[Rfam]
RNA: Bacterial RNase P class A
RNA sequence: CGAGUCGGCCGGACGGCCGCGGACUGGGGAACCAUCGCCACAAGGUGAUCAGGCCCCGGCCCGAGGAAAGUCCGGACUCCACAGAGCAGGGCGGUUGCUAACGGCAACCCGGGGUGACCCGCGGGAAAGUGCCACAGAAAACAGACCGCCGCGCCACUGGGCGCGGUAAGGGUGAAACGGUGCGGUAAGAGCGCACCAGCGCCCCGGGUGACCGGGGCGGCUAGGUAAACCCCGCCCGGAGCAAGGUCGAAGGCCGCACCGCUCGCGGUGCGGACGCGCGGAUGGUGUGCAGCGAUGCACGGAAGGGCUGCUCGCCCGAGUCCGCGGGUGGACCGCUCGAGGUACCCGGUGACGGUGUGCCCAGAUGGAUGGUCGUCGCCCUCCGUCCGCGGAGGGCACAGGAUCCGGCUUACAGGCCGACUCGUUCG
Numbered sequence: 001c002g003a004g005u006c007g008g009c010c011g012g013a014c015g016g017c018c019g020c021g022g023a024c025u026g027g028g029g030a031a032c033c034a035u036c037g038c039c040a041c042a043a044g045g046u047g048a049u050c051a052g053g054c055c056c057c058g059g060c061c062c063g064a065g066g067a068a069a070g071u072c073c074g075g076a077c078u079c080c081a082c083a084g085a086g087c088a089g090g091g092c093g094g095u096u097g098c099u100a101a102c103g104g105c106a107a108c109c110c111g112g113g114g115u116g117a118c119c120c121g122c123g124g125g126a127a128a129g130u131g132c133c134a135c136a137g138a139a140a141a142c143a144g145a146c147c148g149c150c151g152c153g154c155c156a157c158u159g160g161g162c163g164c165g166g167u168a169a170g171g172g173u174g175a176a177a178c179g180g181u182g183c184g185g186u187a188a189g190a191g192c193g194c195a196c197c198a199g200c201g202c203c204c205c206g207g208g209u210g211a212c213c214g215g216g217g218c219g220g221c222u223a224g225g226u227a228a229a230c231c232c233c234g235c236c237c238g239g240a241g242c243a244a245g246g247u248c249g250a251a252g253g254c255c256g257c258a259c260c261g262c263u264c265g266c267g268g269u270g271c272g273g274a275c276g277c278g279c280g281g282a283u284g285g286u287g288u289g290c291a292g293c294g295a296u297g298c299a300c301g302g303a304a305g306g307g308c309u310g311c312u313c314g315c316c317c318g319a320g321u322c323c324g325c326g327g328g329u330g331g332a333c334c335g336c337u338c339g340a341g342g343u344a345c346c347c348g349g350u351g352a353c354g355g356u357g358u359g360c361c362c363a364g365a366u367g368g369a370u371g372g373u374c375g376u377c378g379c380c381c382u383c384c385g386u387c388c389g390c391g392g393a394g395g396g397c398a399c400a401g402g403a404u405c406c407g408g409c410u411u412a413c414a415g416g417c418c419g420a421c422u423c424g425u426u427c428g
Base pairs, nucleotide, nucleotide: 001424002423003422004421005420006419007418008417009416010415011413012377013376014375015374016373017372018371020063021062022061024059025058026057027056028055068411069410070409072408073407074406075405076404077241078240079239080238084313085312086311087310089237090236091235092234093233094108095107096106097105098104109123110121111120112119113118124232125231129230130229131226132225133224146171147170148167149166150165151164152163153162154161155160179197180196181195182194183193184192199221200219201218202217203216204215205214206213207212245334246333247332248331270325271324272323273322274321275320305317306316307315308314341360346355347354348353